[Rfam]
RNA sequence: GAGAUAUGAUGAUCAAACAAUUUGGUCCGUGUUUCUGAUUAACCGUGACCGAUAAUUUUAUUAACCAAACUCUGAUCUU
Numbered sequence: 001g002a003g004a005u006a007u008g009a010u011g012a013u014c015a016a017a018c019a020a021u022u023u024g025g026u027c028c029g030u031g032u033u034u035c036u037g038a039u040u041a042a043c044c045g046u047g048a049c050c051g052a053u054a055a056u057u058u059u060a061u062u063a064a065c066c067a068a069a070c071u072c073u074g075a076u077c078u079u
Stems, first nucleotide, its partner, number of pairs: 001079004
Small nucleolar RNA SNORD18: a 79-nucleotide sequence from Arabis nemorensis. Gene Ontology terms of the family: nucleolus and RNA processing.